Shown here is a 103-nucleotide RNA sequence from Celerinatantimonas diazotrophica, a member of the family "Tryptophan operon leader". On this family, see Kolter and Yanofsky, Annu Rev Genet 1982: "Attenuation in amino acid biosynthetic operons". NCBI's taxonomy places the organism under Bacteria, Pseudomonadota, Gammaproteobacteria, Celerinatantimonadaceae, Celerinatantimonas. The base pairs follow the family's consensus structure, which is taken from published work.

[Rfam]
RNA sequence: AAAAAUUGGUGGUGGCACUCUCCAUAUCGGCGGGUGUGAUUUGUCAUGCAUAAUUAACAAGCAAUCAAAUUCAUAAAGCCCGCAUUCAUGCGGGCUUUUUUGU
Numbered sequence: 001a002a003a004a005a006u007u008g009g010u011g012g013u014g015g016c017a018c019u020c021u022c023c024a025u026a027u028c029g030g031c032g033g034g035u036g037u038g039a040u041u042u043g044u045c046a047u048g049c050a051u052a053a054u055u056a057a058c059a060a061g062c063a064a065u066c067a068a069a070u071u072c073a074u075a076a077a078g079c080c081c082g083c084a085u086u087c088a089u090g091c092g093g094g095c096u097u098u099u100u101u102g103u
Base pairs, nucleotide, nucleotide: 009047010046011045012044015037016036017035018034019033022030023029077096078095079094080093081092082091083090084089